[Rfam]
RNA sequence: AGGGGGUGCCUUUCAGGCAUCCUCUCCCAAACUUCCAAAGGGCUGGUCUUCGGAUCGGCCCUUUUUUUUGGACUCU
Numbered sequence: 001a002g003g004g005g006g007u008g009c010c011u012u013u014c015a016g017g018c019a020u021c022c023u024c025u026c027c028c029a030a031a032c033u034u035c036c037a038a039a040g041g042g043c044u045g046g047u048c049u050u051c052g053g054a055u056c057g058g059c060c061c062u063u064u065u066u067u068u069u070g071g072a073c074u075c076u
Base pairs, nucleotide, nucleotide: 008018009017010016011015040061041060042059043058044057045056046055047054048053
Shown here is a 76-nucleotide RNA sequence from Novosphingobium sp. 9U, a member of the family "Makes More Granules Regulator RNA (mmgR)". Clan: suhB sRNA clan. Taxonomically the source falls in Novosphingobium (Bacteria, Pseudomonadota, Sphingomonadales, Sphingomonadaceae). The match comes from Rfam's covariance-model search (50 bits).